Bacteriophage Diversity-Generating Retroelement RNA: a 122-nucleotide RNA. Pairs were carried over by alignment from the consensus structure, which is taken from published work. On this family, see Handa et al., Nature 2025: "RNA control of reverse transcription in a diversity-generating retroelement".

RNA sequence: AACUAUAGUAACGCCACAAGCCUACUAUGUUUGAUCUUUACGAUCAGCUUUCUUAUCCUGCUUCGCAAUACAAACUUAGAUUUGAUGUAUUGCAGAGUAUUGAAAAUAGAACGCAUGUCAAU
Numbered sequence: 001a002a003c004u005a006u007a008g009u010a011a012c013g014c015c016a017c018a019a020g021c022c023u024a025c026u027a028u029g030u031u032u033g034a035u036c037u038u039u040a041c042g043a044u045c046a047g048c049u050u051u052c053u054u055a056u057c058c059u060g061c062u063u064c065g066c067a068a069u070a071c072a073a074a075c076u077u078a079g080a081u082u083u084g085a086u087g088u089a090u091u092g093c094a095g096a097g098u099a100u101u102g103a104a105a106a107u108a109g110a111a112c113g114c115a116u117g118u119c120a121a122u
Stems, first nucleotide, its partner, number of pairs: 001031002004029007013021002059067003080122001082121005091115003101106001